[Rfam]
RNA sequence: GUUGCUUCACAACUGGAAGGAUGGCCUGUUGUUUACAGUUUGGUCAUCCUGUAGAGGGAAGCAUAGAUGAGCGGAAACACCGGCCAGCAUUAAACAGCACGGGGCAUUAUGAAACCGCCCCGUGUUACCUGUCUUCUGGCACAUAU
Numbered sequence: 001g002u003u004g005c006u007u008c009a010c011a012a013c014u015g016g017a018a019g020g021a022u023g024g025c026c027u028g029u030u031g032u033u034u035a036c037a038g039u040u041u042g043g044u045c046a047u048c049c050u051g052u053a054g055a056g057g058g059a060a061g062c063a064u065a066g067a068u069g070a071g072c073g074g075a076a077a078c079a080c081c082g083g084c085c086a087g088c089a090u091u092a093a094a095c096a097g098c099a100c101g102g103g104g105c106a107u108u109a110u111g112a113a114a115c116c117g118c119c120c121c122g123u124g125u126u127a128c129c130u131g132u133c134u135u136c137u138g139g140c141a142c143a144u145a146u
Stems, first nucleotide, its partner, number of pairs: 003063006017052001019050002022046005083140005089134001096126003100122005

The family of this 146-nucleotide sequence from Aegilops tauschii is "small nucleolar RNA snoR137". Rfam 15.1 lists 808 matches to the family in 221 species. For this family Rfam cites "Mining small RNA sequencing data: a new approach to identify small nucleolar RNAs in Arabidopsis" (Chen and Wu, Nucleic Acids Res, 2009). The family's RNA type in Rfam is H/ACA-box small nucleolar RNA. A search with the family's covariance model found it, with a score of 59 bits. NCBI's taxonomy places the organism under Eukaryota, Spermatophyta, Mesangiospermae, Pooideae, Aegilops tauschii.